[Rfam]
RNA sequence: UUGCGGACUGAAGCGCCAUUUUAAGAGCUAUAAGUGAGAAAGUUGUCAUAGCUCUUUAAAUGGUACUGCGGUAAGCAU
Numbered sequence: 001u002u003g004c005g006g007a008c009u010g011a012a013g014c015g016c017c018a019u020u021u022u023a024a025g026a027g028c029u030a031u032a033a034g035u036g037a038g039a040a041a042g043u044u045g046u047c048a049u050a051g052c053u054c055u056u057u058a059a060a061u062g063g064u065a066c067u068g069c070g071g072u073a074a075g076c077a078u
Stems, first nucleotide, its partner, number of pairs: 002077003007072003012067002015064007024055008
RNA: mir-458 microRNA precursor family